mir-969 microRNA precursor family: an 86-nucleotide RNA sequence from Drosophila willistoni. The source organism's lineage runs through Eukaryota, Allotriocarida, Pterygota, Eumetabola and Sophophora. A search with the family's covariance model found it, with a score of 90 bits. Gene Ontology terms of the family: miRNA-mediated post-transcriptional gene silencing and RISC complex. The base pairs follow the family's consensus structure, which was predicted with RNAalifold.
[Rfam]
RNA sequence: CUGUCCUACGCAUGAGUUCCACUAAGCAAGUUUUGGGCAUAUUUCAAAAACAAAAACUUGACACGUUGAGCUCGUCUGUGUGACAG
Numbered sequence: 001c002u003g004u005c006c007u008a009c010g011c012a013u014g015a016g017u018u019c020c021a022c023u024a025a026g027c028a029a030g031u032u033u034u035g036g037g038c039a040u041a042u043u044u045c046a047a048a049a050a051c052a053a054a055a056a057c058u059u060g061a062c063a064c065g066u067u068g069a070g071c072u073c074g075u076c077u078g079u080g081u082g083a084c085a086g
Stems, first nucleotide, its partner, number of pairs: 001086005007080004012075008021066002027060008